Overview:
A member of the RNA family "ASpks TB sRNA" from Wenjunlia tyrosinilytica, 75 nucleotides long. A search with the family's covariance model found it, with a score of 68 bits. The literature on the family includes a 2009 paper in Mol Microbiol by Arnvig and Young, "Identification of small RNAs in Mycobacterium tuberculosis". Taxonomically the source falls in Wenjunlia (Bacteria, Bacillati, Actinomycetota, Kitasatosporales). The family's consensus secondary structure is taken from published work.

[Rfam]
RNA sequence: CUUCAGGGAGCCCAGCCACAGCGGCCGCCCCGGCUCACGGCCUUGGCCGUAGGUCCUCAACAGCGCCUGCGCUUC
Numbered sequence: 001c002u003u004c005a006g007g008g009a010g011c012c013c014a015g016c017c018a019c020a021g022c023g024g025c026c027g028c029c030c031c032g033g034c035u036c037a038c039g040g041c042c043u044u045g046g047c048c049g050u051a052g053g054u055c056c057u058c059a060a061c062a063g064c065g066c067c068u069g070c071g072c073u074u075c
Base pairs, nucleotide, nucleotide: 015025016024017023031071032070038065039064043060044059045058049054